epsC RNA: a 127-nucleotide RNA from Neobacillus rhizophilus. Taxonomically the source falls in Neobacillus (Bacteria, Bacillota, Caryophanales, Bacillaceae).
RNA sequence: CGGUGAGGCUUCCCUGUCCGUUAUCAAUGGGGGCACUCGGUCUUGCUGUGGGGCCGCUCUUCAGCAAAGAGUGGGACCUUAGACGCAUGUCGUCAGGAGCAUGAUGUGAGGGAGGGUUAGAUGCCCA
Dot-bracket structure: [[[....((((((....]]]........)))))).(((((((.((((..(((.((((((((.....))))))))..)))..((((.....))))...)))).))).))))...((((.....)))).